Alphaproteobacteria transfer-messenger RNA: a 368-nucleotide RNA from Kaustia mangrovi. NCBI's taxonomy places the organism under Bacteria, Pseudomonadati, Pseudomonadota, Parvibaculaceae, Kaustia. On this family, see Williams and Bartel, RNA 1996: "Phylogenetic analysis of tmRNA secondary structure". A search with the family's covariance model found it, with a score of 286 bits.

RNA sequence: GGGCUUUAAACCGCGACGGGAUCCGCCUAUAUUGCAGAUGUCAGCCGACGGGCUGGCUAUGGCGAUAAAUGGACGUUGGAAUAAGCCCAUCGGACCCGGGGGCAGUACCCGGCACCUCCACCAAAUGCCACCGGCCGCAGCCGGGCCAGAGGCAUCUGAUGGGGGUGAAACAGGAUCGACGAGGGUGUAAAGAGCGGUCCUUCGCCCGGUGGGACUCGCCGUUAUCGGGUCACAACAAUAGUUGCCAACGACAACUAUGCUCCGGUGGCCCAGGCUGCGUAAUGCAGCUUAGGUACCGAAAUUCAAGUCCCAGGCUGUAGCAGGUCUGGGCGGGGUUCGGCGGGCACCUGGCAACAGAAGCCCCCAUU
Numbered sequence: 001g002g003g004c005u006u007u008a009a010a011c012c013g014c015g016a017c018g019g020g021a022u023c024c025g026c027c028u029a030u031a032u033u034g035c036a037g038a039u040g041u042c043a044g045c046c047g048a049c050g051g052g053c054u055g056g057c058u059a060u061g062g063c064g065a066u067a068a069a070u071g072g073a074c075g076u077u078g079g080a081a082u083a084a085g086c087c088c089a090u091c092g093g094a095c096c097c098g099g100g101g102g103c104a105g106u107a108c109c110c111g112g113c114a115c116c117u118c119c120a121c122c123a124a125a126u127g128c129c130a131c132c133g134g135c136c137g138c139a140g141c142c143g144g145g146c147c148a149g150a151g152g153c154a155u156c157u158g159a160u161g162g163g164g165g166u167g168a169a170a171c172a173g174g175a176u177c178g179a180c181g182a183g184g185g186u187g188u189a190a191a192g193a194g195c196g197g198u199c200c201u202u203c204g205c206c207c208g209g210u211g212g213g214a215c216u217c218g219c220c221g222u223u224a225u226c227g228g229g230u231c232a233c234a235a236c237a238a239u240a241g242u243u244g245c246c247a248a249c250g251a252c253a254a255c256u257a258u259g260c261u262c263c264g265g266u267g268g269c270c271c272a273g274g275c276u277g278c279g280u281a282a283u284g285c286a287g288c289u290u291a292g293g294u295a296c297c298g299a300a301a302u303u304c305a306a307g308u309c310c311c312a313g314g315c316u317g318u319a320g321c322a323g324g325u326c327u328g329g330g331c332g333g334g335g336u337u338c339g340g341c342g343g344g345c346a347c348c349u350g351g352c353a354a355c356a357g358a359a360g361c362c363c364c365c366a367u368u
Base pairs, nucleotide, nucleotide: 040057041056042055043054044053045052046051061206062205063204064203065202071200072199073198074196075195076194077193086185087184088183090182091181092180096112097111098110099109100108113167114166115165116164117163118162119161207221208220209219210218213231214230216228217227333349334348335347336346339365340364342362343361
Bacterial tmRNA, also known as 10Sa RNA or SsrA, is named for its dual tRNA and mRNA-like properties.